[Rfam]
RNA: sucA-II RNA
Organism: Azomonas agilis
RNA sequence: ACCCACCACCCUUCUAAAAGAGGGUGGUGUUUGAAAAAGAAUCCUAGCAGGUGCUGGGGUUCUCUCGGAAUCUGUAGACCAGCAGGGGACGACCGGGCUGGUGUCCGGGCUAUCUGCGGCCUUAACUAUUCACCUUGAGUUAGUUGGAUCAAUACUUAAGGGGAGACCAGUUACGGUUUGUACGCCGGUGGUGUCCCCUUAUUGAGGGCGACAA
Numbered sequence: 001a002c003c004c005a006c007c008a009c010c011c012u013u014c015u016a017a018a019a020g021a022g023g024g025u026g027g028u029g030u031u032u033g034a035a036a037a038a039g040a041a042u043c044c045u046a047g048c049a050g051g052u053g054c055u056g057g058g059g060u061u062c063u064c065u066c067g068g069a070a071u072c073u074g075u076a077g078a079c080c081a082g083c084a085g086g087g088g089a090c091g092a093c094c095g096g097g098c099u100g101g102u103g104u105c106c107g108g109g110c111u112a113u114c115u116g117c118g119g120c121c122u123u124a125a126c127u128a129u130u131c132a133c134c135u136u137g138a139g140u141u142a143g144u145u146g147g148a149u150c151a152a153u154a155c156u157u158a159a160g161g162g163g164a165g166a167c168c169a170g171u172u173a174c175g176g177u178u179u180g181u182a183c184g185c186c187g188g189u190g191g192u193g194u195c196c197c198c199u200u201a202u203u204g205a206g207g208g209c210g211a212c213a214a
Stems, first nucleotide, its partner, number of pairs: 001032001004029010040061006047054002084199005090193002093108005110191005116185003120176002125171003129166001130164002133161002138156003